RNA: Small nucleolar RNA SNORA32
Organism: Climacteris rufus
RNA sequence: UGGUCAUUACCAAGGCUGCUGGGAUGUUGCUGUUUCUGGUGAGCUGUGGACAUGACCAUAAAGCAAAUCCAUCAGACUCUUGUGCUGCCACACAGUGUGGCACCAAGUCUGCUGGGAAUAGGC
Numbered sequence: 001u002g003g004u005c006a007u008u009a010c011c012a013a014g015g016c017u018g019c020u021g022g023g024a025u026g027u028u029g030c031u032g033u034u035u036c037u038g039g040u041g042a043g044c045u046g047u048g049g050a051c052a053u054g055a056c057c058a059u060a061a062a063g064c065a066a067a068u069c070c071a072u073c074a075g076a077c078u079c080u081u082g083u084g085c086u087g088c089c090a091c092a093c094a095g096u097g098u099g100g101c102a103c104c105a106a107g108u109c110u111g112c113u114g115g116g117a118a119u120a121g122g123c
Base pairs, nucleotide, nucleotide: 003056004055005054006053007052010049011048012047029044030043031042068116069115070114071113075109076108077107078106086102087101088100